RNA sequence: UCAGCAGGAUUGUGUUUUUUGGUGUUAUGCUUUUGUGUAUAUUGCUGAAAGAGUUUCCUGCUAGAUUUAUCUGAGGAUGAUGGGCAGUAGAGUUCGCCUAAUUAUAAUUUGGCAUCUCAUCAAUCAUCAGCCUCUUAUUU
Numbered sequence: 001u002c003a004g005c006a007g008g009a010u011u012g013u014g015u016u017u018u019u020u021g022g023u024g025u026u027a028u029g030c031u032u033u034u035g036u037g038u039a040u041a042u043u044g045c046u047g048a049a050a051g052a053g054u055u056u057c058c059u060g061c062u063a064g065a066u067u068u069a070u071c072u073g074a075g076g077a078u079g080a081u082g083g084g085c086a087g088u089a090g091a092g093u094u095c096g097c098c099u100a101a102u103u104a105u106a107a108u109u110u111g112g113c114a115u116c117u118c119a120u121c122a123a124u125c126a127u128c129a130g131c132c133u134c135u136u137a138u139u140u
Stems, first nucleotide, its partner, number of pairs: 004061005009055001014040002017037001019035001073134004078129006087121001090118001
Shown here is a 140-nucleotide RNA sequence from Dioscorea zingiberensis, a member of the family "small nucleolar RNA snoR135". By type it is an H/ACA-box small nucleolar RNA. Rfam 15.1 lists 837 matches to the family in 220 species. The literature on the family includes a 2009 paper in Nucleic Acids Res by Chen and Wu, "Mining small RNA sequencing data: a new approach to identify small nucleolar RNAs in Arabidopsis". The family's consensus secondary structure was predicted with RNAalifold. The organism belongs to Dioscorea, within Eukaryota.